[Rfam]
RNA: Alphaproteobacterial sRNA ar9
RNA sequence: AUAAGAAGGAACCGGCAAACAAGCACGGUUCCGCCAAAGGCAUCGCGGUCUGAGUCUUGGGAGGAAGCCCCCUCUGGCGCGCCGUAAGGCUGCUGCCGCCGGGCUCAUAUAAUGAGUUCGACAAGCCAAUCGGGCGAAAAGCUCGGCUUGAGGGGUUAGGACGCGAACUGAGAAGGGCAAGGCUCAACGCCUUGCCCUUUUUU
Numbered sequence: 001a002u003a004a005g006a007a008g009g010a011a012c013c014g015g016c017a018a019a020c021a022a023g024c025a026c027g028g029u030u031c032c033g034c035c036a037a038a039g040g041c042a043u044c045g046c047g048g049u050c051u052g053a054g055u056c057u058u059g060g061g062a063g064g065a066a067g068c069c070c071c072c073u074c075u076g077g078c079g080c081g082c083c084g085u086a087a088g089g090c091u092g093c094u095g096c097c098g099c100c101g102g103g104c105u106c107a108u109a110u111a112a113u114g115a116g117u118u119c120g121a122c123a124a125g126c127c128a129a130u131c132g133g134g135c136g137a138a139a140a141g142c143u144c145g146g147c148u149u150g151a152g153g154g155g156u157u158a159g160g161a162c163g164c165g166a167a168c169u170g171a172g173a174a175g176g177g178c179a180a181g182g183c184u185c186a187a188c189g190c191c192u193u194g195c196c197c198u199u200u201u202u203u
Stems, first nucleotide, its partner, number of pairs: 001203001003201002009031006044165004055065003069155005076097003079093003099146007176196008